[Rfam]
RNA sequence: GGGAUGUGAUGAGUGGUCAUUACUCGCAAUCUUUGCAAGAUGGGUGUCCUCCUAAAGCCUGGUUACGACAAUCUGGGCACUCCCAUUUGUACCAUCUGAUCCC
Number, nucleotide and partner (000 for none) at each position: 001g103002g102003g101004a100005u000006g000007u000008g000009a000010u000011g000012a000013g000014u094015g093016g092017u091018c000019a000020u000021u000022a000023c039024u038025c000026g036027c035028a000029a000030u000031c000032u000033u000034u000035g027036c026037a000038a024039g023040a000041u000042g082043g081044g080045u079046g078047u076048c075049c000050u000051c000052c000053u000054a000055a000056a000057g000058c000059c000060u000061g073062g072063u071064u000065a000066c000067g000068a000069c000070a000071a063072u062073c061074u000075g048076g047077g000078c046079a045080c044081u043082c042083c000084c000085a000086u000087u000088u000089g000090u000091a017092c016093c015094a014095u000096c000097u000098g000099a000100u004101c003102c002103c001
RNA: Small nucleolar RNA Z279/snoR105/snoR108